[Rfam]
RNA sequence: GGUCGGCUGCGGGCCCCUCUGGCGGGAUGCGUCCUCAUGCUCCCGUGAUGUCGGAGCCGAUGC
Numbered sequence: 001g002g003u004c005g006g007c008u009g010c011g012g013g014c015c016c017c018u019c020u021g022g023c024g025g026g027a028u029g030c031g032u033c034c035u036c037a038u039g040c041u042c043c044c045g046u047g048a049u050g051u052c053g054g055a056g057c058c059g060a061u062g063c
Base pairs, nucleotide, nucleotide: 006057007056008055010053011052012051022046023045024044025043026042029040030039031038032037
The record is a 63-nucleotide RNA from Methylobacterium radiodurans, which matches "terC RNA" in Rfam. The source organism's lineage runs through Bacteria, Pseudomonadati, Pseudomonadota, Alphaproteobacteria and Methylobacterium.